[Rfam]
RNA sequence: GGAACCGUAGCCAAGUGGCUAAGGCAUGAGUCUGCAAAACUUCUAUUCGUCGGUUCGAAUCCGCCCGGUUCCU
Numbered sequence: 001g002g003a004a005c006c007g008u009a010g011c012c013a014a015g016u017g018g019c020u021a022a023g024g025c026a027u028g029a030g031u032c033u034g035c036a037a038a039a040c041u042u043c044u045a046u047u048c049g050u051c052g053g054u055u056c057g058a059a060u061c062c063g064c065c066c067g068g069u070u071c072c073u
Base pairs, nucleotide, nucleotide: 001072002071003070004069005068006067007066010025011024012023028042029041030040031039049065051063052062053061
A member of the RNA family "tRNA" from Arachis duranensis, 73 nucleotides long. Rfam links the family to the GO term triplet codon-amino acid adaptor activity. The source organism's lineage runs through Eukaryota, Viridiplantae, Mesangiospermae, eudicotyledons and Arachis. The family's RNA type in Rfam is transfer RNA. It scores 56 bits against the family's covariance model. Pairs were carried over by alignment from the consensus structure, which is taken from published work.